[Rfam]
RNA: Bacterial RNase P class A
Organism: Polyangiaceae bacterium
RNA sequence: GUAGGUGAACGAGCGAUCGCUGGCGUGCCGGCCACUUCGGUUUGGCACGCGGGAGGAAAGUCCGAGCUCCGCAGGGCAAGGUGCCGGGUAACGCCCGGUGAGGGUGACCUCGAGGAAAGUGCCACAGAAAACAAACCGCCGGCGUGCCGCGAGGCCCCACCGGUAAGGGUGAAAAGGUGGAGUAAGAGACCACCGCACGCUCGGUAACGAGCGUGGCACGGCAAACCCCACUUGGAGCAAGGCCAUGUAGGGAGGCGAAGUGCGGCUGACGUCGCACGAGAGGGCUGCCCGCCCGAGCCUCCGGGUAGGCUGCUCGAGGCACGCGGUAACGCGCGCCCUAGAGGAAUGAUCGCGAUCGAGGAAGGGGCGACCCGACCUCGAUACAGAACUCGGCUUAUGAGCACCUGCGACC
Number, nucleotide and partner (000 for none) at each position: 001g408002u407003a406004g405005g404006u403007g402008a000009a000010c399011g398012a000013g353014c352015g351016a350017u349018c348019g000020c053021u052022g000023g050024c049025g048026u047027g046028c045029c044030g043031g042032c000033c000034a000035c000036u000037u000038c000039g000040g000041u000042u031043u030044g029045g028046c027047a026048c025049g024050c023051g000052g021053g020054a000055g000056g000057a000058a396059a395060g394061u000062c393063c392064g391065a390066g389067c237068u236069c235070c234071g000072c000073a000074g290075g289076g288077c287078a000079a233080g232081g231082u230083g229084c098085c097086g096087g095088g094089u000090a000091a000092c000093g000094c088095c087096c086097g085098g084099u113100g111101a110102g109103g108104g000105u000106g000107a000108c103109c102110u101111c100112g000113a099114g228115g227116a000117a000118a000119g226120u225121g222122c221123c220124a000125c000126a000127g000128a000129a000130a000131a000132c000133a000134a000135a000136c168137c167138g164139c163140c162141g161142g160143c000144g158145u000146g156147c000148c000149g000150c000151g000152a000153g000154g000155c000156c146157c000158c144159a000160c142161c141162g140163g139164u138165a000166a000167g137168g136169g000170u000171g000172a000173a000174a000175a000176g194177g193178u192179g191180g190181a000182g000183u000184a000185a000186g000187a000188g000189a000190c180191c179192a178193c177194c176195g217196c215197a214198c213199g212200c211201u210202c209203g208204g000205u000206a000207a000208c203209g202210a201211g200212c199213g198214u197215g196216g000217c195218a000219c000220g123221g122222c121223a000224a000225a120226c119227c115228c114229c083230a082231c081232u080233u079234g070235g069236a068237g067238c000239a000240a000241g311242g310243c309244c308245a000246u000247g000248u000249a000250g000251g302252g301253a300254g299255g298256c297257g000258a000259a000260g000261u000262g000263c000264g000265g000266c000267u000268g000269a000270c000271g000272u000273c000274g000275c000276a000277c000278g000279a000280g000281a000282g294283g293284g292285c291286u000287g077288c076289c075290c074291g285292c284293c283294c282295g000296a000297g256298c255299c254300u253301c252302c251303g000304g000305g000306u000307a000308g244309g243310c242311u241312g000313c000314u000315c000316g000317a000318g337319g336320c335321a000322c333323g332324c331325g330326g000327u000328a000329a000330c325331g324332c323333g322334c000335g320336c319337c318338c000339u000340a000341g000342a000343g000344g000345a000346a000347u000348g018349a017350u016351c015352g014353c013354g000355a000356u000357c000358g000359a000360g000361g000362a000363a000364g000365g000366g000367g000368c000369g000370a000371c000372c000373c000374g000375a000376c000377c000378u000379c000380g000381a000382u000383a000384c000385a000386g000387a000388a000389c066390u065391c064392g063393g062394c060395u059396u058397a000398u011399g010400a000401g000402c007403a006404c005405c004406u003407g002408c001409g000410a000411c000412c000